[Rfam]
RNA sequence: GGUUUACCGUCCCACAUACAUACUCAAAAUGUAUGUGGGACGGUAAACC
Numbered sequence: 001g002g003u004u005u006a007c008c009g010u011c012c013c014a015c016a017u018a019c020a021u022a023c024u025c026a027a028a029a030u031g032u033a034u035g036u037g038g039g040a041c042g043g044u045a046a047a048c049c
Base pairs, nucleotide, nucleotide: 001049002048003047004046005045006044007043008042009041010040011039012038013037014036015035016034017033018032019031020030021029